[Rfam]
RNA: Small nucleolar RNA sn2903
RNA sequence: AAGCAGGGAUGAAUGCACAUAAUUGCUCUGACACCUCUCAUGUCAAUGCCAAAUUUGGCAUAAUGAUUUCGCCCAGGAAUCUGAGCUU
Numbered sequence: 001a002a003g004c005a006g007g008g009a010u011g012a013a014u015g016c017a018c019a020u021a022a023u024u025g026c027u028c029u030g031a032c033a034c035c036u037c038u039c040a041u042g043u044c045a046a047u048g049c050c051a052a053a054u055u056u057g058g059c060a061u062a063a064u065g066a067u068u069u070c071g072c073c074c075a076g077g078a079a080u081c082u083g084a085g086c087u088u
Base pairs, nucleotide, nucleotide: 001088002087003086004085